RNA: Small nucleolar RNA SNORA56
RNA sequence: UGGCAGUUAUCCUUUUCUAGUCUGGCUCCUGGGACUCUAGAAGGAGUCAGUCUGCAACAAUAAGUGGUGAGUUCUUCUGUCCAGUGUCAGUGUUUGAUGGUGGCUGUAGACCUGCCAGAUAUCA
Numbered sequence: 001u002g003g004c005a006g007u008u009a010u011c012c013u014u015u016u017c018u019a020g021u022c023u024g025g026c027u028c029c030u031g032g033g034a035c036u037c038u039a040g041a042a043g044g045a046g047u048c049a050g051u052c053u054g055c056a057a058c059a060a061u062a063a064g065u066g067g068u069g070a071g072u073u074c075u076u077c078u079g080u081c082c083a084g085u086g087u088c089a090g091u092g093u094u095u096g097a098u099g100g101u102g103g104c105u106g107u108a109g110a111c112c113u114g115c116c117a118g119a120u121a122u123c124a
Stems, first nucleotide, its partner, number of pairs: 003055004016041005021034003065117005071111001073110003079104003085099006